[Rfam]
RNA: Metazoan signal recognition particle RNA
RNA sequence: CCAUGGUGGCGCGCACCUAGCUACUUGGGAGGCUGAGGCUGGAGGAUCACUGUAGCCUAGGAGUUCUAGGCUGCUGUGUGCUAUGCCGAUCGGGUGUCCACAGUAAGUUUAGUAUCAAUAUGGUGACCCCCUGGGAACGGGGGACCACCAGGUUGCCUAAGGAGGGGUGAACCGGCCCAGGUCGGAAACGGAGCAAGUCAAAACUCCCGUGCCAAUCAGUAGUGGGAUCGUGCCUGUGAAUAGCCACUGUACUCCAGCCUGGGCAAUAUAGUGAGACGCGGUCUCUC
Numbered sequence: 001c002c003a004u005g006g007u008g009g010c011g012c013g014c015a016c017c018u019a020g021c022u023a024c025u026u027g028g029g030a031g032g033c034u035g036a037g038g039c040u041g042g043a044g045g046a047u048c049a050c051u052g053u054a055g056c057c058u059a060g061g062a063g064u065u066c067u068a069g070g071c072u073g074c075u076g077u078g079u080g081c082u083a084u085g086c087c088g089a090u091c092g093g094g095u096g097u098c099c100a101c102a103g104u105a106a107g108u109u110u111a112g113u114a115u116c117a118a119u120a121u122g123g124u125g126a127c128c129c130c131c132u133g134g135g136a137a138c139g140g141g142g143g144a145c146c147a148c149c150a151g152g153u154u155g156c157c158u159a160a161g162g163a164g165g166g167g168u169g170a171a172c173c174g175g176c177c178c179a180g181g182u183c184g185g186a187a188a189c190g191g192a193g194c195a196a197g198u199c200a201a202a203a204c205u206c207c208c209g210u211g212c213c214a215a216u217c218a219g220u221a222g223u224g225g226g227a228u229c230g231u232g233c234c235u236g237u238g239a240a241u242a243g244c245c246a247c248u249g250u251a252c253u254c255c256a257g258c259c260u261g262g263g264c265a266a267u268a269u270a271g272u273g274a275g276a277c278g279c280g281g282u283c284u285c286u287c
Base pairs, nucleotide, nucleotide: 001032002031004013005012017029018028035285036284037283038282039281040280041279047274048273049272050271051270052269053266055264056263057262058261059260060259061258066257067256069254070253072251073250074249076247077246078245080244081243082242083241084240086238091236092235093234094233095232096231097230098226099225101224102223104221105220107217109215110214112212113211114210115209116155117154118153119152121150122149123148124147125146128143129142130141131140132139133138156162157161164207165206166205167204168203174199175198176197182191183190184189